[Rfam]
RNA sequence: GGAUAACACUUUUUGCUAUCUCCGUCCAAUAAUGCAAUGACACGUAAGAUAAAUUUUUCACCUGUCAUUGUGUUAUUGGUCGGGAAUAGCAAAACAAUGUCAUUC
Numbered sequence: 001g002g003a004u005a006a007c008a009c010u011u012u013u014u015g016c017u018a019u020c021u022c023c024g025u026c027c028a029a030u031a032a033u034g035c036a037a038u039g040a041c042a043c044g045u046a047a048g049a050u051a052a053a054u055u056u057u058u059c060a061c062c063u064g065u066c067a068u069u070g071u072g073u074u075a076u077u078g079g080u081c082g083g084g085a086a087u088a089g090c091a092a093a094a095c096a097a098u099g100u101c102a103u104u105c
Stems, first nucleotide, its partner, number of pairs: 002104003011094009021084004026079017044061002047058003